[Rfam]
RNA sequence: CAAAUCUCGGUUUUUUUUAACCGAGAAUCGGCAAAACAUUUUAAGAGUGUAAGCUAUCCACACCCAACUCCUACUCAAUACGUCCCCGUCGUACAGAACAGUAACAUGUUUCUCAAUUAUCCAAGGUUGGGAAUACGGGGAAACCCAACCCCUUGAGCGGAUGGGUUGCAUGGUUCAAUUGAGAGAA
Numbered sequence: 001c002a003a004a005u006c007u008c009g010g011u012u013u014u015u016u017u018u019a020a021c022c023g024a025g026a027a028u029c030g031g032c033a034a035a036a037c038a039u040u041u042u043a044a045g046a047g048u049g050u051a052a053g054c055u056a057u058c059c060a061c062a063c064c065c066a067a068c069u070c071c072u073a074c075u076c077a078a079u080a081c082g083u084c085c086c087c088g089u090c091g092u093a094c095a096g097a098a099c100a101g102u103a104a105c106a107u108g109u110u111u112c113u114c115a116a117u118u119a120u121c122c123a124a125g126g127u128u129g130g131g132a133a134u135a136c137g138g139g140g141a142a143a144c145c146c147a148a149c150c151c152c153u154u155g156a157g158c159g160g161a162u163g164g165g166u167u168g169c170a171u172g173g174u175u176c177a178a179u180u181g182a183g184a185g186a187a
Stems, first nucleotide, its partner, number of pairs: 012098004017093001023065001025059001027057001029053001069187001071185002074183006080092003084101001105172005112165003119162004127148005150157001
Annotation: drz-agam-2-2 ribozyme: a 187-nucleotide RNA from Anopheles gambiae. For this family Rfam cites "Widespread occurrence of self-cleaving ribozymes" (Webb et al., Science, 2009). Rfam 15.1 lists 486 matches to the family in 10 species. A search with the family's covariance model found it, with a score of 111 bits. Rfam links the family to the GO term catalytic activity.